[Rfam]
RNA: Editing element of GABA-3 exon 9
RNA sequence: AAAGUAUCAUAUGCAACUGCAAUGGACUGGUUUAUAGCUGUCUGUUUUGCCUUC
Numbered sequence: 001a002a003a004g005u006a007u008c009a010u011a012u013g014c015a016a017c018u019g020c021a022a023u024g025g026a027c028u029g030g031u032u033u034a035u036a037g038c039u040g041u042c043u044g045u046u047u048u049g050c051c052u053u054c
Stems, first nucleotide, its partner, number of pairs: 002053002008049001011046001013045002016041002019038002022035005